[Rfam]
RNA sequence: UAAGGAGCAAUAAACUCUUUCUUCUUCUAUCAAGAGGGAUUAUUGCUCCUUUUUUG
Numbered sequence: 001u002a003a004g005g006a007g008c009a010a011u012a013a014a015c016u017c018u019u020u021c022u023u024c025u026u027c028u029a030u031c032a033a034g035a036g037g038g039a040u041u042a043u044u045g046c047u048c049c050u051u052u053u054u055u056g
Stems, first nucleotide, its partner, number of pairs: 002051012019036005
Overview: The record is a 56-nucleotide RNA sequence from Striga hermonthica, which matches "Plastid-psbA-3 3UTR RNA" in Rfam. Plastid psbA-3 is a non-coding RNA (ncRNA) present in plastids. It was identified in inverted repeat sequences in the 3 prime untranslate region (3UTR) of photosystem II quinone-binding protein (psbA). Lineage of the source: Eukaryota > Tracheophyta > Magnoliopsida > Mesangiospermae > Striga.